[Rfam]
RNA sequence: CAGACUUGAUCGCUGAAUUCCGUCACGACGGAAGCGGGGGAACCAAGCGUGCCAACGGCACAUGGGGUGAAUCCUGAUCGGCCUGUCUCAGCAGGCCGACCAGGUAGGGCGACUCUCACGCCCGAAUCCGACAGCUAACCUCGUAAGCGUCCCGAGAGAGGCAAC
Numbered sequence: 001c002a003g004a005c006u007u008g009a010u011c012g013c014u015g016a017a018u019u020c021c022g023u024c025a026c027g028a029c030g031g032a033a034g035c036g037g038g039g040g041a042a043c044c045a046a047g048c049g050u051g052c053c054a055a056c057g058g059c060a061c062a063u064g065g066g067g068u069g070a071a072u073c074c075u076g077a078u079c080g081g082c083c084u085g086u087c088u089c090a091g092c093a094g095g096c097c098g099a100c101c102a103g104g105u106a107g108g109g110c111g112a113c114u115c116u117c118a119c120g121c122c123c124g125a126a127u128c129c130g131a132c133a134g135c136u137a138a139c140c141u142c143g144u145a146a147g148c149g150u151c152c153c154g155a156g157a158g159a160g161g162c163a164a165c
Base pairs, nucleotide, nucleotide: 011149012148013147014146018033019032020031021030022029034144035143036142037141038140039139044064045063065129066128067127073104074103075102076101107123108122109121110120
RNA: c-di-AMP riboswitch aptamer (ydaO/yuaA leader)